Notes:
The record is a 107-nucleotide RNA sequence from Peptostreptococcaceae bacterium AS15, which matches "SAM riboswitch aptamer (S box leader)" in Rfam. Taxonomically the source falls in Peptostreptococcaceae (Bacteria, Bacillati, Bacillota, Clostridia). On this family, see Grundy and Henkin, Mol Microbiol 1998: "The S box regulon: a new global transcription termination control system for methionine and cysteine biosynthesis genes in gram-positive bacteria". The SAM riboswitch is found upstream of a number of genes which code for proteins involved in methionine or cysteine biosynthesis in Gram-positive bacteria. The family's consensus secondary structure is taken from published work. A search with the family's covariance model found it, with a score of 91 bits.

[Rfam]
RNA sequence: ACCUUAUCAAGAGAGGUGGAGGGAAAGGCCCUGUGAAACCCGGCAACCCAACUUUUUCAAAAAGUGAAGGUGCCAAUUCCUGCAAGUUUUUACUUGACAGAUGAGGA
Numbered sequence: 001a002c003c004u005u006a007u008c009a010a011g012a013g014a015g016g017u018g019g020a021g022g023g024a025a026a027g028g029c030c031c032u033g034u035g036a037a038a039c040c041c042g043g044c045a046a047c048c049c050a051a052c053u054u055u056u057u058c059a060a061a062a063a064g065u066g067a068a069g070g071u072g073c074c075a076a077u078u079c080c081u082g083c084a085a086g087u088u089u090u091u092a093c094u095u096g097a098c099a100g101a102u103g104a105g106g107a
Stems, first nucleotide, its partner, number of pairs: 002106007013041001015040003021031003026081003042074004047070002049066002078099001083096005